Rfam assigns this 76-nucleotide RNA to the family "mir-26 microRNA precursor family". The family's consensus secondary structure was predicted with RNAalifold. A reference for the family is Lagos-Quintana et al. (2001), "Identification of novel genes coding for small expressed RNAs", Science.
[Rfam]
RNA sequence: UCGCGGCCCGGUUCAAGUAAUCCAGGAUAGGCUGUUCCAGCCCGGCCUGUUCCCGGUUACUUGUCCCGGGAGGCGG
Numbered sequence: 001u002c003g004c005g006g007c008c009c010g011g012u013u014c015a016a017g018u019a020a021u022c023c024a025g026g027a028u029a030g031g032c033u034g035u036u037c038c039a040g041c042c043c044g045g046c047c048u049g050u051u052c053c054c055g056g057u058u059a060c061u062u063g064u065c066c067c068g069g070g071a072g073g074c075g076g
Base pairs, nucleotide, nucleotide: 002075003074004073007070008069009068010067011066014063015062016061017060018059019058020057021056022055025052026051027050028049029048030047031046032045033044